Lysine riboswitch aptamer: a 159-nucleotide RNA sequence from Clostridium tetanomorphum. NCBI's taxonomy places the organism under Bacteria, Bacillati, Bacillota, Clostridiaceae, Clostridium.
[Rfam]
RNA sequence: ACGUGAUAUAGAGGCCGCAAUUCUCAUUAGUAUUAAAUGUUUGUUCAUUUAGGAAAGGGAAAAUUGCCGAAACACAAGAUAUGUGUUGGGACUAUACUGAAUAAGUAUGGUACUGUCUUCAAGGAAUUGCCCAAUUUUUUGAAGGAGUGCUUGUCAUGU
Numbered sequence: 001a002c003g004u005g006a007u008a009u010a011g012a013g014g015c016c017g018c019a020a021u022u023c024u025c026a027u028u029a030g031u032a033u034u035a036a037a038u039g040u041u042u043g044u045u046c047a048u049u050u051a052g053g054a055a056a057g058g059g060a061a062a063a064u065u066g067c068c069g070a071a072a073c074a075c076a077a078g079a080u081a082u083g084u085g086u087u088g089g090g091a092c093u094a095u096a097c098u099g100a101a102u103a104a105g106u107a108u109g110g111u112a113c114u115g116u117c118u119u120c121a122a123g124g125a126a127u128u129g130c131c132c133a134a135u136u137u138u139u140u141g142a143a144g145g146a147g148u149g150c151u152u153g154u155c156a157u158g159u
Base pairs, nucleotide, nucleotide: 006154007153008152010151011150017067018066019065020064021063022062024060025059033052034051035050036049037048038047039046071087072086073085074084075083076082088114089113091111092110093109094108095107096106097105098104116145117144118143119142120141121140122139123138124137125136126135